[Rfam]
RNA sequence: GUAAGCCCCACCAGGGUAAAGCCUAACCAGCAGCCCUGUAGCCAGUUCUUGGAGGUUUUCAGGUAACUGAAAGCUUUAAGCGUAGAACGGCAAAAUAGCGGGCCGAAAGCGAAAGCUGAAGUGAUUGAGCUCCGAAAUAUGAAUUGAGAAUGGCCGAUGUGGUUACACGCACAGAAGGCAACAACAGUAUAGACGCUAUGGUGAGUCUUUAUGUCGCUCCG
Numbered sequence: 001g002u003a004a005g006c007c008c009c010a011c012c013a014g015g016g017u018a019a020a021g022c023c024u025a026a027c028c029a030g031c032a033g034c035c036c037u038g039u040a041g042c043c044a045g046u047u048c049u050u051g052g053a054g055g056u057u058u059u060c061a062g063g064u065a066a067c068u069g070a071a072a073g074c075u076u077u078a079a080g081c082g083u084a085g086a087a088c089g090g091c092a093a094a095a096u097a098g099c100g101g102g103c104c105g106a107a108a109g110c111g112a113a114a115g116c117u118g119a120a121g122u123g124a125u126u127g128a129g130c131u132c133c134g135a136a137a138u139a140u141g142a143a144u145u146g147a148g149a150a151u152g153g154c155c156g157a158u159g160u161g162g163u164u165a166c167a168c169g170c171a172c173a174g175a176a177g178g179c180a181a182c183a184a185c186a187g188u189a190u191a192g193a194c195g196c197u198a199u200g201g202u203g204a205g206u207c208u209u210u211a212u213g214u215c216g217c218u219c220c221g
Stems, first nucleotide, its partner, number of pairs: 012038005021031002024204001026202002041091003046087004050082002052077011133221002146219003151216002153179003158173004184214002187212003191208004
Notes:
This 221-nucleotide sequence from Desulforamulus profundi belongs to the Rfam family "Group II catalytic intron D1-D4-6". A search with the family's covariance model found it, with a score of 119 bits. The literature on the family includes a 2003 paper in Crit Rev Biochem Mol Biol by Lehmann and Schmidt, "Group II introns: structure and catalytic versatility of large natural ribozymes". The family has 174 seed sequences and 1,617 matches in Rfam 15.1.